The record is a 354-nucleotide RNA sequence from Stenotrophomonas maltophilia, which matches "transfer-messenger RNA" in Rfam. About the family: Bacterial tmRNA, also known as 10Sa RNA or SsrA, is named for its dual tRNA and mRNA-like properties. The family's RNA type in Rfam is non-coding RNA gene. It is one of the family's seed sequences. On this family, see Williams and Bartel, RNA 1996: "Phylogenetic analysis of tmRNA secondary structure". The family's consensus secondary structure is taken from published work. Rfam links the family to the GO term RNA catabolic process.
RNA sequence: GGGGGUGCAUUGGUUUCGACGGGGGUUGUGAAGUCGCCUGGCGCAUGCCGAGGGGGUAGCUUUCCUCGUAAAUCCAGCUGCAAAACUCUAGUUGCCAACGACGACAACUACGCUCUGGCCGCUUAAGGCCUAAGCCUCGAAACCGCUUGUGUCCAUGCUCGCGGUGUAGAGUCACUAUCAUGGAAUCGCGCUGGGUGGCUGCCUGUCAGUCCGGCACUAGAACACAACAGGCUGGUUCCCGGAUGCGCUUUGCACGCCGUGCUGUUCGGGGACGAGAUCCAACGGUGAGCUAAGCAUGUAGUGCUGGGGAUGGAGUGCCUUCGGACGGCGGUUCAAUUCCGCCCACCUCCACCA
Numbered sequence: 001g002g003g004g005g006u007g008c009a010u011u012g013g014u015u016u017c018g019a020c021g022g023g024g025g026u027u028g029u030g031a032a033g034u035c036g037c038c039u040g041g042c043g044c045a046u047g048c049c050g051a052g053g054g055g056g057u058a059g060c061u062u063u064c065c066u067c068g069u070a071a072a073u074c075c076a077g078c079u080g081c082a083a084a085a086c087u088c089u090a091g092u093u094g095c096c097a098a099c100g101a102c103g104a105c106a107a108c109u110a111c112g113c114u115c116u117g118g119c120c121g122c123u124u125a126a127g128g129c130c131u132a133a134g135c136c137u138c139g140a141a142a143c144c145g146c147u148u149g150u151g152u153c154c155a156u157g158c159u160c161g162c163g164g165u166g167u168a169g170a171g172u173c174a175c176u177a178u179c180a181u182g183g184a185a186u187c188g189c190g191c192u193g194g195g196u197g198g199c200u201g202c203c204u205g206u207c208a209g210u211c212c213g214g215c216a217c218u219a220g221a222a223c224a225c226a227a228c229a230g231g232c233u234g235g236u237u238c239c240c241g242g243a244u245g246c247g248c249u250u251u252g253c254a255c256g257c258c259g260u261g262c263u264g265u266u267c268g269g270g271g272a273c274g275a276g277a278u279c280c281a282a283c284g285g286u287g288a289g290c291u292a293a294g295c296a297u298g299u300a301g302u303g304c305u306g307g308g309g310a311u312g313g314a315g316u317g318c319c320u321u322c323g324g325a326c327g328g329c330g331g332u333u334c335a336a337u338u339c340c341g342c343c344c345a346c347c348u349c350c351a352c353c354a
Base pairs, nucleotide, nucleotide: 001350002349003348004347005346006345007344020323021322022321023320024319025318026317029314033311034310035309037307039306040305041304042303044298045297046296047295048294049068050067051066052065053064056081057080058079059078060077061076112135113134114133117130118129119128120127136171137170138169140167143164144163145162146161152184153183154182155181156180157179186219188217190215191214192213193212201232202231203230204229205228235273236272237271238270239269240268241267242266243265244264246261247260248259252290253289255287256286257285258284327343328342329341330340331339